[Rfam]
This 164-nucleotide RNA from Gemella sp. zg-570 belongs to the Rfam family "glmS glucosamine-6-phosphate activated ribozyme aptamer". Lineage of the source: Bacteria > Bacillati > Bacillota > Bacilli > Gemella. Pairs were carried over by alignment from the consensus structure, which is taken from published work.
RNA sequence: UUUAUAAUUAUAGCUCCCGAACUAAGUUUUAAAGUUUAAAAUAAAUUUACUUGCCGAGGAAAAAAGUUAUCGAAAAUUCGGCGGAUACUUUUUCGGAAUUUAGAGUUUCGUUAGGUAACAUACAAAAGAAUUAUUAUUCCACAAAAUUGUUACUAUCUCUUACA
Numbered sequence: 001u002u003u004a005u006a007a008u009u010a011u012a013g014c015u016c017c018c019g020a021a022c023u024a025a026g027u028u029u030u031a032a033a034g035u036u037u038a039a040a041a042u043a044a045a046u047u048u049a050c051u052u053g054c055c056g057a058g059g060a061a062a063a064a065a066g067u068u069a070u071c072g073a074a075a076a077u078u079c080g081g082c083g084g085a086u087a088c089u090u091u092u093u094c095g096g097a098a099u100u101u102a103g104a105g106u107u108u109c110g111u112u113a114g115g116u117a118a119c120a121u122a123c124a125a126a127a128g129a130a131u132u133a134u135u136a137u138u139c140c141a142c143a144a145a146a147u148u149g150u151u152a153c154u155a156u157c158u159c160u161u162a163c164a
Stems, first nucleotide, its partner, number of pairs: 020052002023049005029043001061093005070081004094110006114154007128139004